[Rfam]
RNA sequence: ACUAAUAAUGAAAAAAAGGGCAGUUGGCUGCCCUCUCGAUUGCUGAUAACAGGCAUGGACAGACAAACGCUGGUGGUCGUUCCCCACCGAACGUUAUGAGAAGCCUUUCAUCAGUCUUCAGGGUAGCUUCGCUACCCUUUUUUACCGGAGUUAU
Numbered sequence: 001a002c003u004a005a006u007a008a009u010g011a012a013a014a015a016a017a018g019g020g021c022a023g024u025u026g027g028c029u030g031c032c033c034u035c036u037c038g039a040u041u042g043c044u045g046a047u048a049a050c051a052g053g054c055a056u057g058g059a060c061a062g063a064c065a066a067a068c069g070c071u072g073g074u075g076g077u078c079g080u081u082c083c084c085c086a087c088c089g090a091a092c093g094u095u096a097u098g099a100g101a102a103g104c105c106u107u108u109c110a111u112c113a114g115u116c117u118u119c120a121g122g123g124u125a126g127c128u129u130c131g132c133u134a135c136c137c138u139u140u141u142u143u144a145c146c147g148g149a150g151u152u153a154u
Base pairs, nucleotide, nucleotide: 013152014151018033019032020031021030022029023028034122035121036120038119039115040114041113042112045109046108056096057095058094060089062087074086075085076084
Shown here is a 154-nucleotide sequence from [Pantoea] beijingensis, a member of the family "sroC RNA". It scores 64 bits against the family's covariance model. Pairs were carried over by alignment from the consensus structure, which was predicted with PFOLD. Its family is annotated with RNA binding and regulation of RNA stability in the Gene Ontology. Rfam describes the family as follows. This family consists of a number of bacterial sroC RNA genes of around 160 bases in length. sroC is found in several Enterobacterial species. It base-pairs with GcvB. This interaction triggers the degradation of GcvB by RNase E, alleviating the GcvB-mediated mRNA repression of other amino acid-related transport and metabolic genes. On this family, see Vogel et al., Nucleic Acids Res 2003: "RNomics in Escherichia coli detects new sRNA species and indicates parallel transcriptional output in bacteria". The source organism's lineage runs through Bacteria, Gammaproteobacteria, Enterobacterales, Erwiniaceae and Erwinia.